[Rfam]
RNA: mir-574 microRNA precursor family
Nucleotides: 081
Stems, first nucleotide, its partner, number of pairs: 008073010019062002022059001024057006032049004
Number, partner (000 for none) and nucleotide at each position: 001000a002000g003000g004000c005000c006000c007000a008073g009072a010071g011070a012069g013068a014067g015066g016065g017064g018000c019062a020061g021000g022059g023000u024057c025056u026055g027054a028053u029052c030000u031000g032049c033048a034047g035046u036000c037000u038000c039000c040000g041000u042000g043000g044000c045000a046035g047034c048033u049032g050000u051000u052029g053028a054027u055026c056025a057024g058000c059022u060000a061020u062019u063000a064017c065016c066015u067014c068013u069012c070011u071010c072009u073008u074000u075000c076000u077000c078000u079000c080000a081000g